[Rfam]
RNA: Small nucleolar RNA SNORA51
Organism: Castor canadensis
RNA sequence: GGCUUCCUGGUGCUUACCAUAGGUCGCAUUCUUAUUUUGAGUGACAAAAAGAGGAAACAAAGUAAACCUACUUCAUAUACAUCUCAUCCCAGGCCCUGUGCCUGGUCUGUAUUUUAAUGGGGAGACAUGG
Dot-bracket structure: .(.(((((...........((....(.((....)).)....))........))))).)............((((((........((..((((((.....))))))..)).......))))))........